[Rfam]
RNA sequence: UGGAUGUGGAGAGAGCAGAGCGCCUGAAGAAUGGCACCUUUGUGAUGAACACAUCCAACAGCAACUUGGGCUUACUCCUCACGGGUGGCAGGAUACCUUCCUGUGAUAUUACGCCAUAUAUAU
Numbered sequence: 001u002g003g004a005u006g007u008g009g010a011g012a013g014a015g016c017a018g019a020g021c022g023c024c025u026g027a028a029g030a031a032u033g034g035c036a037c038c039u040u041u042g043u044g045a046u047g048a049a050c051a052c053a054u055c056c057a058a059c060a061g062c063a064a065c066u067u068g069g070g071c072u073u074a075c076u077c078c079u080c081a082c083g084g085g086u087g088g089c090a091g092g093a094u095a096c097c098u099u100c101c102u103g104u105g106a107u108a109u110u111a112c113g114c115c116a117u118a119u120a121u122a123u
Stems, first nucleotide, its partner, number of pairs: 002056007015043006022035003069115003076108001080105002083098003087094001
Dot-bracket structure: .(((((((......((((((.(((........)))..))))))......)))))))............(((....(...((.(((.(......).))).....))..)....)))........
Shown here is a 123-nucleotide RNA sequence from Cnephaeus nilssonii, a member of the family "Small nucleolar RNA SNORA11". Rfam links the family to the GO terms nucleolus and RNA processing. U107 (SNORA11) is a member of the H/ACA class of snoRNAs that guide the sites of modification of uridines to pseudouridines. This snoRNA was identified by RT-PCR from blood cells and its expression confirmed by Northern blot analysis. There is no predicted target for this guide snRNA. The match comes from Rfam's covariance-model search (47 bits). Pairs were carried over by alignment from the consensus structure, which was predicted with RNAalifold.